[Rfam]
RNA sequence: CAAAAUGAGAGACCCACCUCCUCCCGGGUUGAUCGUUUUGCACCAAGAUGGUCCUUCUUCCUCCUCCCUGAGGGGCCAUCAGAAAAAGGAACGGCGAUGCGCAACUCCUCCCGCGCAUCGCCGUUUUU
Numbered sequence: 001c002a003a004a005a006u007g008a009g010a011g012a013c014c015c016a017c018c019u020c021c022u023c024c025c026g027g028g029u030u031g032a033u034c035g036u037u038u039u040g041c042a043c044c045a046a047g048a049u050g051g052u053c054c055u056u057c058u059u060c061c062u063c064c065u066c067c068c069u070g071a072g073g074g075g076c077c078a079u080c081a082g083a084a085a086a087a088g089g090a091a092c093g094g095c096g097a098u099g100c101g102c103a104a105c106u107c108c109u110c111c112c113g114c115g116c117a118u119c120g121c122c123g124u125u126u127u128u
Stems, first nucleotide, its partner, number of pairs: 003038003007034002011030003047080010092123011
RNA: Alphaproteobacterial ar14